Nucleotides: 179
Base pairs, nucleotide, nucleotide: 019078020077022075023074024073025072026071029068031066032065036058038056039055040054041053042052043051044050102172103171104170105169106168107167108166124149126147127146128145129144
Number, partner (000 for none) and nucleotide at each position: 001000g002000a003000c004000u005000u006000c007000u008000u009000g010000u011000u012000a013000c014000a015000a016000g017000c018000a019078c020077u021000a022075u023074g024073c025072u026071a027000a028000a029068a030000c031066u032065g033000c034000a035000c036058a037000a038056g039055u040054u041053g042052g043051g044050g045000u046000a047000u048000u049000u050044c051043c052042u053041u054040g055039g056038c057000u058036u059000u060000u061000g062000u063000g064000g065032u066031a067000a068029u069000g070000c071026u072025a073024g074023c075022a076000c077020g078019g079000u080000a081000c082000a083000c084000a085000c086000a087000a088000g089000a090000a091000g092000a093000a094000g095000a096000a097000g098000a099000a100000a101000a102172g103171c104170a105169c106168u107167a108166a109000a110000u111000c112000a113000a114000g115000u116000g117000u118000g119000a120000c121000u122000u123000g124149g125000g126147u127146g128145g129144a130000c131000c132000u133000c134000u135000u136000u137000c138000u139000u140000a141000a142000u143000g144129u145128c146127c147126a148000g149124u150000g151000u152000c153000c154000u155000a156000g157000u158000c159000u160000g161000g162000a163000g164000a165000c166108u167107u168106g169105g170104u171103g172102c173000a174000a175000c176000a177000c178000u179000a